[Rfam]
SAM riboswitch aptamer (S box leader): a 111-nucleotide sequence from Jeotgalibacillus sp. R-1-5s-1.
The SAM riboswitch is found upstream of a number of genes which code for proteins involved in methionine or cysteine biosynthesis in Gram-positive bacteria.
It scores 68 bits against the family's covariance model.
RNA sequence: CUCUUAUAAAGAGCAGGUGGAGGGACGAGCCCGAUGAAACCCGGCAACCUGUUUCAGCUUAACCGCUGAUUCAAGGUGCUAAUUCUCACAGCAAUGGCUGAAGGAUAAGAG
Number, nucleotide and partner (000 for none) at each position: 001c111002u110003c109004u108005u107006a106007u105008a000009a000010a000011g000012a000013g042014c000015a000016g041017g040018u039019g000020g000021a000022g032023g031024g030025a000026c000027g087028a086029g085030c024031c023032c022033g000034a000035u000036g000037a000038a000039a018040c017041c016042c013043g080044g079045c078046a077047a000048c076049c075050u000051g071052u000053u069054u000055c000056a000057g000058c000059u000060u000061a000062a000063c000064c000065g000066c000067u000068g000069a053070u000071u051072c000073a000074a000075g049076g048077u046078g045079c044080u043081a000082a000083u000084u103085c029086u028087c027088a000089c100090a099091g098092c097093a000094a000095u000096g000097g092098c091099u090100g089101a000102a000103g084104g000105a007106u006107a005108a004109g003110a002111g001